RNA sequence: GAAAUCCACUAGGGGCGCCAUCACGGCUGAGAUAAAGCGAUAUGCUUUUGUCCCUUUGAACCUGAUCUGGGUCAUGCCAGCGUAGGAAAGUGGGACUGUGCGUUU
Numbered sequence: 001g002a003a004a005u006c007c008a009c010u011a012g013g014g015g016c017g018c019c020a021u022c023a024c025g026g027c028u029g030a031g032a033u034a035a036a037g038c039g040a041u042a043u044g045c046u047u048u049u050g051u052c053c054c055u056u057u058g059a060a061c062c063u064g065a066u067c068u069g070g071g072u073c074a075u076g077c078c079a080g081c082g083u084a085g086g087a088a089a090g091u092g093g094g095a096c097u098g099u100g101c102g103u104u105u
Base pairs, nucleotide, nucleotide: 006093007092008091009090010089011055012054013053014052017027018026019025034048035047036046037045038044061086062085063084064083067080068079069078070077